A member of the RNA family "Glycine riboswitch aptamer" from Sulfuriferula nivalis, 107 nucleotides long. Its Rfam clan is "Glycine riboswitch clan".

RNA sequence: GUAGUGUUUGCGGGAGAGUGUAAUCGCGCUGAAGAGUUCGUCCCGCGAUUGCCGCCGAAGGCGUAAUUCACCCAGAAUCGCUCAGGCCCCCGAACCGUAAAUACAGG
Numbered sequence: 001g002u003a004g005u006g007u008u009u010g011c012g013g014g015a016g017a018g019u020g021u022a023a024u025c026g027c028g029c030u031g032a033a034g035a036g037u038u039c040g041u042c043c044c045g046c047g048a049u050u051g052c053c054g055c056c057g058a059a060g061g062c063g064u065a066a067u068u069c070a071c072c073c074a075g076a077a078u079c080g081c082u083c084a085g086g087c088c089c090c091c092g093a094a095c096c097g098u099a100a101a102u103a104c105a106g107g
Base pairs, nucleotide, nucleotide: 006102007101008100009099010098011097012096013095020052021051022050023049024048025047026046027045028044054087055086056085057083058082061081062080063079067074